A member of the RNA family "CRISPR RNA direct repeat element" from Saccharopolyspora erythraea, 37 nucleotides long. Rfam 15.1 lists 554 matches to the family in 30 species. The base pairs follow the family's consensus structure, which was predicted with WAR. Taxonomically the source falls in Saccharopolyspora erythraea (Bacteria, Pseudonocardiales, Pseudonocardiaceae, Saccharopolyspora).
RNA sequence: GCGGCUCCGGCCGUCCGCGGCCGGUGAGGUUCGCAAG
Numbered sequence: 001g002c003g004g005c006u007c008c009g010g011c012c013g014u015c016c017g018c019g020g021c022c023g024g025u026g027a028g029g030u031u032c033g034c035a036a037g
Stems, first nucleotide, its partner, number of pairs: 005026001007024007